Rfam assigns this 46-nucleotide RNA sequence from Phycisphaerae bacterium RAS1 to the family "Acido-Lenti-1 RNA".
Taxonomically the source falls in Phycisphaerae (Bacteria, Pseudomonadati, Planctomycetota).
By type it is a small RNA.
[Rfam]
RNA sequence: CCCCGGGCUUGCGCCCGGGGUCUUAUUCUGCCGCCCCUCCGGGGCU
Numbered sequence: 001c002c003c004c005g006g007g008c009u010u011g012c013g014c015c016c017g018g019g020g021u022c023u024u025a026u027u028c029u030g031c032c033g034c035c036c037c038u039c040c041g042g043g044g045c046u
Stems, first nucleotide, its partner, number of pairs: 001020008033045005